[Rfam]
RNA: ALIL pseudoknot
RNA sequence: GGCUUUUUUCGCCCAGGCGGAGCUCGACCGCCCAUAUAGGUGAUAGUCAAAUUCAUUGAUAACGAGAAACAGCAUUAUGAGGCCCUUUCAAUUUGCAGAAUCCUACCAAUCGCCCCA
Numbered sequence: 001g002g003c004u005u006u007u008u009u010c011g012c013c014c015a016g017g018c019g020g021a022g023c024u025c026g027a028c029c030g031c032c033c034a035u036a037u038a039g040g041u042g043a044u045a046g047u048c049a050a051a052u053u054c055a056u057u058g059a060u061a062a063c064g065a066g067a068a069a070c071a072g073c074a075u076u077a078u079g080a081g082g083c084c085c086u087u088u089c090a091a092u093u094u095g096c097a098g099a100a101u102c103c104u105a106c107c108a109a110u111c112g113c114c115c116c117a
Stems, first nucleotide, its partner, number of pairs: 016032005078117002081114002089112001092109002095106001097104002